Rfam assigns this 582-nucleotide part of an RNA from an uncultured bacterium to the family "Bacterial small subunit ribosomal RNA". Its family is annotated with ribosome and structural constituent of ribosome in the Gene Ontology. The family's consensus secondary structure is taken from published work. Its Rfam clan is "SSU clan".
RNA sequence: UGACGGGGGCUCACACAAGCGGUGGAGCAUGUGGCUUAAUUCGAGGCAACGCGAAGAACCUUACCUGGGUUUGACAUGCACGGAUUAACCGGUGGAAACAUCGGCCACGCUCGCAAGAGUGGAACGUGCACAGGUGCUGCAUGGCUGUCGUCAGCUCGUGCUGUGAAGUGUCGGGUUAAGUCCCUUAACGAGCGCAACCCCUAUCGUUAGUUGCCCACGGUUCGGCCGGGUACUCUAGCGAGACUGCCGGCGUUAAGCCGGAGGAAGGUGGGGAUGACGUCAAGUCCUCAUGGCCCUUACAUCCAGGGCUGCACACGUGCUACAAUGGCGCUGACAGAGCGACGCAAUGCCGCGAGGCGGAGCAAAUCGCAAAAAAGGCGCCCCAGUUCGGAUUGCAGGCUGCAAUUCGCCUGCAUGAAGUCGGAAUCGCUAGUAAUCGGAGAUCAGCUACGCUCCGGUGAAUGUGUUCCUGAGCCUUGUACACACCGCCCGUCACGUCAUGGGAGCCGAGGGUGCCCGAAGCCGCCACGAUUCAGUGGUGUCCACGGCAAGAUCGGUGACUGGGACGAAGUCGUAACAAGG
Numbered sequence: 001u002g003a004c005g006g007g008g009g010c011u012c013a014c015a016c017a018a019g020c021g022g023u024g025g026a027g028c029a030u031g032u033g034g035c036u037u038a039a040u041u042c043g044a045g046g047c048a049a050c051g052c053g054a055a056g057a058a059c060c061u062u063a064c065c066u067g068g069g070u071u072u073g074a075c076a077u078g079c080a081c082g083g084a085u086u087a088a089c090c091g092g093u094g095g096a097a098a099c100a101u102c103g104g105c106c107a108c109g110c111u112c113g114c115a116a117g118a119g120u121g122g123a124a125c126g127u128g129c130a131c132a133g134g135u136g137c138u139g140c141a142u143g144g145c146u147g148u149c150g151u152c153a154g155c156u157c158g159u160g161c162u163g164u165g166a167a168g169u170g171u172c173g174g175g176u177u178a179a180g181u182c183c184c185u186u187a188a189c190g191a192g193c194g195c196a197a198c199c200c201c202u203a204u205c206g207u208u209a210g211u212u213g214c215c216c217a218c219g220g221u222u223c224g225g226c227c228g229g230g231u232a233c234u235c236u237a238g239c240g241a242g243a244c245u246g247c248c249g250g251c252g253u254u255a256a257g258c259c260g261g262a263g264g265a266a267g268g269u270g271g272g273g274a275u276g277a278c279g280u281c282a283a284g285u286c287c288u289c290a291u292g293g294c295c296c297u298u299a300c301a302u303c304c305a306g307g308g309c310u311g312c313a314c315a316c317g318u319g320c321u322a323c324a325a326u327g328g329c330g331c332u333g334a335c336a337g338a339g340c341g342a343c344g345c346a347a348u349g350c351c352g353c354g355a356g357g358c359g360g361a362g363c364a365a366a367u368c369g370c371a372a373a374a375a376a377g378g379c380g381c382c383c384c385a386g387u388u389c390g391g392a393u394u395g396c397a398g399g400c401u402g403c404a405a406u407u408c409g410c411c412u413g414c415a416u417g418a419a420g421u422c423g424g425a426a427u428c429g430c431u432a433g434u435a436a437u438c439g440g441a442g443a444u445c446a447g448c449u450a451c452g453c454u455c456c457g458g459u460g461a462a463u464g465u466g467u468u469c470c471u472g473a474g475c476c477u478u479g480u481a482c483a484c485a486c487c488g489c490c491c492g493u494c495a496c497g498u499c500a501u502g503g504g505a506g507c508c509g510a511g512g513g514u515g516c517c518c519g520a521a522g523c524c525g526c527c528a529c530g531a532u533u534c535a536g537u538g539g540u541g542u543c544c545a546c547g548g549c550a551a552g553a554u555c556g557g558u559g560a561c562u563g564g565g566a567c568g569a570a571g572u573c574g575u576a577a578c579a580a581g582g
Base pairs, nucleotide, nucleotide: 001483002482003480004479005478007477008476009475010474011473012472013471015467016466019430020429021428022427023426024323026321027320028319029318030317031316032315033314034312035311040055041054042053043052064307065306066305067304068303069302070301077130078129079128080127081126082125089104090103091102092101093100094099108119110117111116133296134295136294137293138292139291142290143289144285145284146283147281149279150278154193155192156191157190158189159188160169161168162167173184174183175182199273200272201271202270204241205240206239207238208237209236210235214230215229218228219227220226244264245263247261248260249259250258251257327382328381329380330379331378332377339370340369341368344363345362349358350357351356389420394415395414396413397412398411399410400409436459437458438457439456440455441454442453486581488578491574492573496568497567498566499565501563502562503561506558507557508556509555510554514550515549516548517547522543524541525540526539527538529536